[Rfam]
RNA sequence: CGAGGCGAGUGCCCCGCGGCCUCUGCCCGACCAGGACCCUGACGUACUUCCCCAACGCCAGGUGCCGAUGGUCGGUCAGAGACCACGGGGCAUCCACCACACGAC
Numbered sequence: 001c002g003a004g005g006c007g008a009g010u011g012c013c014c015c016g017c018g019g020c021c022u023c024u025g026c027c028c029g030a031c032c033a034g035g036a037c038c039c040u041g042a043c044g045u046a047c048u049u050c051c052c053c054a055a056c057g058c059c060a061g062g063u064g065c066c067g068a069u070g071g072u073c074g075g076u077c078a079g080a081g082a083c084c085a086c087g088g089g090g091c092a093u094c095c096a097c098c099a100c101a102c103g104a105c
Base pairs, nucleotide, nucleotide: 010092011091012090013089014088015087016086018084019083021081022080023079024078025077027075028074029073030072031071032070033069034066035065038062039061040060041059043057044056045055

A member of the RNA family "mraW RNA" from Nocardia wallacei, 105 nucleotides long.
Taxonomically the source falls in Nocardia (Bacteria, Bacillati, Actinomycetes, Mycobacteriales).
The match comes from Rfam's covariance-model search (70 bits).
It is annotated as a cis-regulatory element.